[Rfam]
RNA sequence: AGUUUUCUGAAUCCGUGCUGAGAUUUCGUCAGAUACCAACCUAUUAGGGUUGAUCAAACUUCCAAGAUAAGUAAAGUU
Numbered sequence: 001a002g003u004u005u006u007c008u009g010a011a012u013c014c015g016u017g018c019u020g021a022g023a024u025u026u027c028g029u030c031a032g033a034u035a036c037c038a039a040c041c042u043a044u045u046a047g048g049g050u051u052g053a054u055c056a057a058a059c060u061u062c063c064a065a066g067a068u069a070a071g072u073a074a075a076g077u078u
Base pairs, nucleotide, nucleotide: 002077003076004075005074006073008071011068012067013066016064017063020061021060022059024058025057026056028054029053030052
Shown here is a 78-nucleotide RNA sequence from Schistosoma haematobium, a member of the family "mir-3492 microRNA precursor family".